[Rfam]
RNA sequence: CUCCAGGGCAACCGUGGCUUUCGAUUGUUACUGUGGGAACCGGGUAACAGUCUACAGCCAUGGUCGCCCGCAGCAC
Numbered sequence: 001c002u003c004c005a006g007g008g009c010a011a012c013c014g015u016g017g018c019u020u021u022c023g024a025u026u027g028u029u030a031c032u033g034u035g036g037g038a039a040c041c042g043g044g045u046a047a048c049a050g051u052c053u054a055c056a057g058c059c060a061u062g063g064u065c066g067c068c069c070g071c072a073g074c075a076c
Base pairs, nucleotide, nucleotide: 012063013062015060016059017058018057023052024051025050026049027048028047029046030045031044032043
Shown here is a 76-nucleotide sequence from Bos grunniens, a member of the family "mir-132 microRNA precursor family". Rfam 15.1 lists 1,023 matches to the family in 386 species. Gene Ontology terms of the family: RISC complex and miRNA-mediated post-transcriptional gene silencing. The organism belongs to Bos, within Eukaryota. It scores 77 bits against the family's covariance model. The literature on the family includes a 2005 paper in Genes Dev by Chen et al., "The developmental miRNA profiles of zebrafish as determined by small RNA cloning".